[Rfam]
RNA sequence: GUCUGUUCUGCUUUAGCAGCACGUAAAUAUUGGGUGCUAAAAUAGUGGACCCCAAUAUUAUUGUGCUGCUUUAGUGUGGCAAGA
Numbered sequence: 001g002u003c004u005g006u007u008c009u010g011c012u013u014u015a016g017c018a019g020c021a022c023g024u025a026a027a028u029a030u031u032g033g034g035u036g037c038u039a040a041a042a043u044a045g046u047g048g049a050c051c052c053c054a055a056u057a058u059u060a061u062u063g064u065g066c067u068g069c070u071u072u073a074g075u076g077u078g079g080c081a082a083g084a
Stems, first nucleotide, its partner, number of pairs: 002083001004081003015070009026059009
mir-15 microRNA precursor family: an 84-nucleotide RNA from Eleutherodactylus coqui. Rfam links the family to the GO terms miRNA-mediated post-transcriptional gene silencing and RISC complex. Lineage of the source: Eukaryota > Deuterostomia > Anura > Eleutherodactylidae > Eleutherodactylus. This family represents the related mir-15a and mir-15b sequences. Its Rfam clan is "mir-15 clan". The literature on the family includes a 2001 paper in Science by Lagos-Quintana et al., "Identification of novel genes coding for small expressed RNAs". The match comes from Rfam's covariance-model search (60 bits).